[Rfam]
RNA sequence: AUUUGGCUUAGUUAGGAGGCAGAAAUCGAUUCUAAAAACCAGCGAUAUCGGGUUCCCGAUGUUUCUGGUGAGUUUAACUCGGGCCUCUUGACGGGGACUAUGGGUUUUCUUUCUUCUUCCAUUGUCCCACAAGAAGCCAUGGACAUUU
Numbered sequence: 001a002u003u004u005g006g007c008u009u010a011g012u013u014a015g016g017a018g019g020c021a022g023a024a025a026u027c028g029a030u031u032c033u034a035a036a037a038a039c040c041a042g043c044g045a046u047a048u049c050g051g052g053u054u055c056c057c058g059a060u061g062u063u064u065c066u067g068g069u070g071a072g073u074u075u076a077a078c079u080c081g082g083g084c085c086u087c088u089u090g091a092c093g094g095g096g097a098c099u100a101u102g103g104g105u106u107u108u109c110u111u112u113c114u115u116c117u118u119c120c121a122u123u124g125u126c127c128c129a130c131a132a133g134a135a136g137c138c139a140u141g142g143a144c145a146u147u148u
Base pairs, nucleotide, nucleotide: 004021005020007018008017009016038069039068040067041066045062046061047060048059049058050057051056079142080141081140082138083137084136087133088132089131090130094128095127096126097125098124100122101121
Small nucleolar RNA U19: a 148-nucleotide RNA sequence from Hibiscus syriacus. It is annotated as an H/ACA-box small nucleolar RNA. A reference for the family is Marker et al. (2002), "Experimental RNomics: identification of 140 candidates for small non-messenger RNAs in the plant Arabidopsis thaliana", Curr Biol. Rfam links the family to the GO terms RNA processing and nucleolus. The source organism's lineage runs through Eukaryota, Embryophyta, rosids, Malvales and Hibiscus. Rfam 15.1 lists 421 matches to the family in 201 species.